[Rfam]
RNA sequence: ACGGCUCGGCUUUUCCUGAAGCCCUGCGUUCCACGCGGAGUAUUGAUGUAGGAAAAGCGGGGCAAU
Dot-bracket structure: (..((((.(((((..((...((.((((((...)))))).)).........)).))))).))))..)